[Rfam]
RNA sequence: UUACUCCCGGUCUGUAAGUCGCUUUGGAUAAAAGCGUCUGCUAAAUACAUUAAA
Numbered sequence: 001u002u003a004c005u006c007c008c009g010g011u012c013u014g015u016a017a018g019u020c021g022c023u024u025u026g027g028a029u030a031a032a033a034g035c036g037u038c039u040g041c042u043a044a045a046u047a048c049a050u051u052a053a054a
Base pairs, nucleotide, nucleotide: 013043014041015040016039020036021035022034023033024032025031
UnaL2 LINE 3' element: a 54-nucleotide RNA from Danionella cerebrum. Rfam classes the family as a cis-regulatory element.